[Rfam]
RNA sequence: UCAGAGGGCCGGGCGGCCGCGUCAUGUAGCGAUACAUGCCGAGGAAAGUCCGGGCUCCGCGGAACGACGGUGGCGGGUAACGCCCGCCGGCCAAGGGCGCGAGCCCGCGGUCAGGGACAGUGCAACAGAGAGCAGACGGCCUGGGCCUCGGCCCGGUCAAGGUGAAAGGGUGCGGUAAGAGCGCACCGCGCGCGCCGGUAACGGCCGCGGCACGGUAAACCCCACCGGGAGCAAGACCGAAUAGGGGCGGCAUGGGCGCAGCGAUGCGUCCGGGGCGUGUUCCCGCCCGCUGCCCGGGUUGGUUGCUGGAGCGUGUCGGCAACGGCACGCCGAGAGGAAUGGUCGCCCAUCUUCCUUCGGGGAGUGGACAGAACCCGGCUUACAGGCCCUCUGACGUU
Numbered sequence: 001u002c003a004g005a006g007g008g009c010c011g012g013g014c015g016g017c018c019g020c021g022u023c024a025u026g027u028a029g030c031g032a033u034a035c036a037u038g039c040c041g042a043g044g045a046a047a048g049u050c051c052g053g054g055c056u057c058c059g060c061g062g063a064a065c066g067a068c069g070g071u072g073g074c075g076g077g078u079a080a081c082g083c084c085c086g087c088c089g090g091c092c093a094a095g096g097g098c099g100c101g102a103g104c105c106c107g108c109g110g111u112c113a114g115g116g117a118c119a120g121u122g123c124a125a126c127a128g129a130g131a132g133c134a135g136a137c138g139g140c141c142u143g144g145g146c147c148u149c150g151g152c153c154c155g156g157u158c159a160a161g162g163u164g165a166a167a168g169g170g171u172g173c174g175g176u177a178a179g180a181g182c183g184c185a186c187c188g189c190g191c192g193c194g195c196c197g198g199u200a201a202c203g204g205c206c207g208c209g210g211c212a213c214g215g216u217a218a219a220c221c222c223c224a225c226c227g228g229g230a231g232c233a234a235g236a237c238c239g240a241a242u243a244g245g246g247g248c249g250g251c252a253u254g255g256g257c258g259c260a261g262c263g264a265u266g267c268g269u270c271c272g273g274g275g276c277g278u279g280u281u282c283c284c285g286c287c288c289g290c291u292g293c294c295c296g297g298g299u300u301g302g303u304u305g306c307u308g309g310a311g312c313g314u315g316u317c318g319g320c321a322a323c324g325g326c327a328c329g330c331c332g333a334g335a336g337g338a339a340u341g342g343u344c345g346c347c348c349a350u351c352u353u354c355c356u357u358c359g360g361g362g363a364g365u366g367g368a369c370a371g372a373a374c375c376c377g378g379c380u381u382a383c384a385g386g387c388c389c390u391c392u393g394a395c396g397u398u
Stems, first nucleotide, its partner, number of pairs: 001394010011383001012347007020041002023038006046381003050378005055231004064281001068227005073087005088114001089112004115222002120220002122216002137161001139157003143154004169187006188211001189209004194205004235304004245295006273288005311330008
The family of this 398-nucleotide RNA from Sphingomonas adhaesiva is "Bacterial RNase P class A". The source organism's lineage runs through Bacteria, Pseudomonadota, Alphaproteobacteria, Sphingomonadales and Sphingomonas.